A member of the RNA family "MIR807 microRNA precursor family" from Oryza glumipatula, 166 nucleotides long. A reference for the family is Luo et al. (2006), "Rice embryogenic calli express a unique set of microRNAs, suggesting regulatory roles of microRNAs in plant post-embryogenic development", FEBS Lett. The source organism's lineage runs through Eukaryota, Embryophyta, Spermatophyta, Poaceae and Oryza. Rfam 15.1 lists 1,514 matches to the family in 13 species. Pairs were carried over by alignment from the consensus structure, which was predicted with WAR. Its family is annotated with RISC complex and miRNA-mediated post-transcriptional gene silencing in the Gene Ontology.
RNA sequence: AACCAUACUAUCGAUGAAUAGAUUUAUCCGUGAGAUAACGUGGUUGUUCCAUCUAGGAUGAGGACAUGGCAUCCUAUUAAUUUAGUGUGAUGGCUGGUAAUAGGAUGCUCCUAGGUGAAAUAGCCACGUCAUCUCGUGGGUGAAUCCAUUCAUCGAUAGUGUGGUU
Numbered sequence: 001a002a003c004c005a006u007a008c009u010a011u012c013g014a015u016g017a018a019u020a021g022a023u024u025u026a027u028c029c030g031u032g033a034g035a036u037a038a039c040g041u042g043g044u045u046g047u048u049c050c051a052u053c054u055a056g057g058a059u060g061a062g063g064a065c066a067u068g069g070c071a072u073c074c075u076a077u078u079a080a081u082u083u084a085g086u087g088u089g090a091u092g093g094c095u096g097g098u099a100a101u102a103g104g105a106u107g108c109u110c111c112u113a114g115g116u117g118a119a120a121u122a123g124c125c126a127c128g129u130c131a132u133c134u135c136g137u138g139g140g141u142g143a144a145u146c147c148a149u150u151c152a153u154c155g156a157u158a159g160u161g162u163g164g165u166u
Stems, first nucleotide, its partner, number of pairs: 001166007009158007017150003021146008030137004035132002038129002041126008051116002054113002057110002069108011